[Rfam]
RNA: Bacterial large subunit ribosomal RNA, nucleotides 9 to 521
RNA sequence: GACUAAGCGCAUACGGUGGAUGCCUAGGCGGCAGGAGGCGAUGAAGGACGUGGCAGCCUGCGAUAAGCCUCGGGGAGCUGGCAAGCAAGCUUUGAUCCGGGGAUUUCCGAAUGGGGUAACCCGGCCGUCUUCGGACGGUCAUCACUGCCUGAAUCCAUAGGGCAGUGAGGCGAACUCGGGGAACUGAAACAUCUCAGUACCCGGAGGAAAAGAAAUCAACCGAGAUUCCCUCAGUAGCGGCGAGCGAACGGGGAACAGCCCUUAAGCCUCGCAGGUCCUAGUGGAACGGUCUGGAAAGUCCGGCCAUAGAGGGUGAUAGCCCCGUACACGAAAGGGCAUGCGAGGUGAAAUCGAGUAGGCCGGGACACGUGUUAUCCUGGCUGAAGAUGGGGGGACCAUCCUCCAAGGCUAAAUACUCCCUGCCGACCGAUAGUGAACCAGUACCGUGAGGGAAAGGCGAAAAGAACCCCGGUGAGGGGAGUGAAAUAGAACCUGAAACCGUAUGCGUACAAG
Numbered sequence: 001g002a003c004u005a006a007g008c009g010c011a012u013a014c015g016g017u018g019g020a021u022g023c024c025u026a027g028g029c030g031g032c033a034g035g036a037g038g039c040g041a042u043g044a045a046g047g048a049c050g051u052g053g054c055a056g057c058c059u060g061c062g063a064u065a066a067g068c069c070u071c072g073g074g075g076a077g078c079u080g081g082c083a084a085g086c087a088a089g090c091u092u093u094g095a096u097c098c099g100g101g102g103a104u105u106u107c108c109g110a111a112u113g114g115g116g117u118a119a120c121c122c123g124g125c126c127g128u129c130u131u132c133g134g135a136c137g138g139u140c141a142u143c144a145c146u147g148c149c150u151g152a153a154u155c156c157a158u159a160g161g162g163c164a165g166u167g168a169g170g171c172g173a174a175c176u177c178g179g180g181g182a183a184c185u186g187a188a189a190c191a192u193c194u195c196a197g198u199a200c201c202c203g204g205a206g207g208a209a210a211a212g213a214a215a216u217c218a219a220c221c222g223a224g225a226u227u228c229c230c231u232c233a234g235u236a237g238c239g240g241c242g243a244g245c246g247a248a249c250g251g252g253g254a255a256c257a258g259c260c261c262u263u264a265a266g267c268c269u270c271g272c273a274g275g276u277c278c279u280a281g282u283g284g285a286a287c288g289g290u291c292u293g294g295a296a297a298g299u300c301c302g303g304c305c306a307u308a309g310a311g312g313g314u315g316a317u318a319g320c321c322c323c324g325u326a327c328a329c330g331a332a333a334g335g336g337c338a339u340g341c342g343a344g345g346u347g348a349a350a351u352c353g354a355g356u357a358g359g360c361c362g363g364g365a366c367a368c369g370u371g372u373u374a375u376c377c378u379g380g381c382u383g384a385a386g387a388u389g390g391g392g393g394g395a396c397c398a399u400c401c402u403c404c405a406a407g408g409c410u411a412a413a414u415a416c417u418c419c420c421u422g423c424c425g426a427c428c429g430a431u432a433g434u435g436a437a438c439c440a441g442u443a444c445c446g447u448g449a450g451g452g453a454a455a456g457g458c459g460a461a462a463a464g465a466a467c468c469c470c471g472g473u474g475a476g477g478g479g480a481g482u483g484a485a486a487u488a489g490a491a492c493c494u495g496a497a498a499c500c501g502u503a504u505g506c507g508u509a510c511a512a513g
Base pairs, nucleotide, nucleotide: 007508008507009506010505011504012503013502014501015500016499022493023457024456027428028427029425030424031423032422033421034420035419036417037416038171039170046108047107048106049062050061051060068102069101070100071099072098073097074096077090078089079088113122114121115120123140124139125138126137127136128135129134142168143167144166145165146164147163148162149161150160175206176204177203178202179201180200186193187192216223217222226413227254228253229252230251231250237245238244257410258409259408260407267345268344269343270342271341272340273339275337276336277335278334279333281329282328283327287302288301289300291298305309311323312322313321358382359381360380361379362378363377364376365375389404390403391402392401393400444451445450467479468478469477470476